[Rfam]
RNA sequence: GGAUGUGAGGGUGAUCUGUCUGUGACAUCUGUCACCCCAUUGAUCACCAGGGUUGAUUUGGCUGUUCUAUCUGGGUAGGCAGGUGUCCCCUUCCUCCCUCACUGCUCCAUGUGCAUCCCUCCUGAAGUUGUGUGCUUGGCUGAAGAGGAUAACUUUCCCCAAUAGAGACUGUACUGUUCAUCAGUGAAGGGUACACUUGACUCCCCUGCUAGAACCUCCAAACAAGCUCAAGGUCCAUCUGUAGGAGGACAUAGGGUAGGCAGUCUUCCAAGACUACAGACACAUCCAAGUGAGGCAUUGCAUGGGGCAGUCUGCCAUUGUUU
Numbered sequence: 001g002g003a004u005g006u007g008a009g010g011g012u013g014a015u016c017u018g019u020c021u022g023u024g025a026c027a028u029c030u031g032u033c034a035c036c037c038c039a040u041u042g043a044u045c046a047c048c049a050g051g052g053u054u055g056a057u058u059u060g061g062c063u064g065u066u067c068u069a070u071c072u073g074g075g076u077a078g079g080c081a082g083g084u085g086u087c088c089c090c091u092u093c094c095u096c097c098c099u100c101a102c103u104g105c106u107c108c109a110u111g112u113g114c115a116u117c118c119c120u121c122c123u124g125a126a127g128u129u130g131u132g133u134g135c136u137u138g139g140c141u142g143a144a145g146a147g148g149a150u151a152a153c154u155u156u157c158c159c160c161a162a163u164a165g166a167g168a169c170u171g172u173a174c175u176g177u178u179c180a181u182c183a184g185u186g187a188a189g190g191g192u193a194c195a196c197u198u199g200a201c202u203c204c205c206c207u208g209c210u211a212g213a214a215c216c217u218c219c220a221a222a223c224a225a226g227c228u229c230a231a232g233g234u235c236c237a238u239c240u241g242u243a244g245g246a247g248g249a250c251a252u253a254g255g256g257u258a259g260g261c262a263g264u265c266u267u268c269c270a271a272g273a274c275u276a277c278a279g280a281c282a283c284a285u286c287c288a289a290g291u292g293a294g295g296c297a298u299u300g301c302a303u304g305g306g307g308c309a310g311u312c313u314g315c316c317a318u319u320g321u322u323u
Base pairs, nucleotide, nucleotide: 001108002107003106005102006101007100008099009098010097011096013093014092018090024087025086026085027084028083029082030081031080032079033078035074036073039068042067043066045064047061048060117171119167120166121165122139123138124137125136127135128134141161142160147158148157149156199265201259202258204256205255206254207253208252216247217246218245219244222242223241224240226238288323289322290321292318294316295315296314297311298310299309300308301307
This 323-nucleotide sequence from Callipepla squamata belongs to the Rfam family "7SK RNA".
Its Rfam clan is "7SK clan".
It scores 262 bits against the family's covariance model.
7SK was discovered as an abundant small nuclear RNA in the mid-70s but a possible function has only recently been suggested. Two independent studies have found that 7SK RNA binds the CDK9/cyclin T complex (known as elongation factor P-TEFb). P-TEFb activates transcription by phosphorylating the C-terminal domain of RNA polymerase II. This process is negatively regulated by the 7SK RNP. The secondary structure of 7SK RNA shown here was proposed by Wasserman and Steitz on the basis of chemical modification and enzymatic cleavage experiments. This family contains a number of annotated pseudogenes and 7SK derived repeats.